Shown here is a 74-nucleotide sequence from Serilophus lunatus, a member of the family "Small nucleolar RNA SNORD26". Taxonomically the source falls in Serilophus (Eukaryota, Bilateria, Teleostomi, Sarcopterygii). For this family Rfam cites "A mammalian gene with introns instead of exons generating stable RNA products" (Tycowski et al., Nature, 1996). It scores 54 bits against the family's covariance model. The family has 17 seed sequences and 451 matches in Rfam 15.1. Clan: SNORD26 clan.
RNA sequence: CUGCGGGGAUGAUCCCCUCGAACUCUCUCUUGCUGAUGGGCUGUGGAGAAGCUUUUUGAAAAGAUCUGAGUGGC
Numbered sequence: 001c002u003g004c005g006g007g008g009a010u011g012a013u014c015c016c017c018u019c020g021a022a023c024u025c026u027c028u029c030u031u032g033c034u035g036a037u038g039g040g041c042u043g044u045g046g047a048g049a050a051g052c053u054u055u056u057u058g059a060a061a062a063g064a065u066c067u068g069a070g071u072g073g074c
Base pairs, nucleotide, nucleotide: 001073002072003071004070

The family's consensus secondary structure was predicted with PFOLD.